[Rfam]
RNA sequence: AUAAACAGAUCAAACAUACCUCAUAUAAGUCGGGAAUACGGCCCGAACGUCUCUACCUGCUGACCGUAAAUCGGCGGACUAUGAGGGAUGAUCGUGCACCC
Numbered sequence: 001a002u003a004a005a006c007a008g009a010u011c012a013a014a015c016a017u018a019c020c021u022c023a024u025a026u027a028a029g030u031c032g033g034g035a036a037u038a039c040g041g042c043c044c045g046a047a048c049g050u051c052u053c054u055a056c057c058u059g060c061u062g063a064c065c066g067u068a069a070a071u072c073g074g075c076g077g078a079c080u081a082u083g084a085g086g087g088a089u090g091a092u093c094g095u096g097c098a099c100c101c
Stems, first nucleotide, its partner, number of pairs: 019086007029048001030046005057077007

The family of this 101-nucleotide RNA sequence from Salisediminibacterium halotolerans is "Purine riboswitch aptamer". The source organism's lineage runs through Bacteria, Bacillota, Bacilli, Caryophanales and Salisediminibacterium. Pairs were carried over by alignment from the consensus structure, which is taken from published work. A search with the family's covariance model found it, with a score of 77 bits.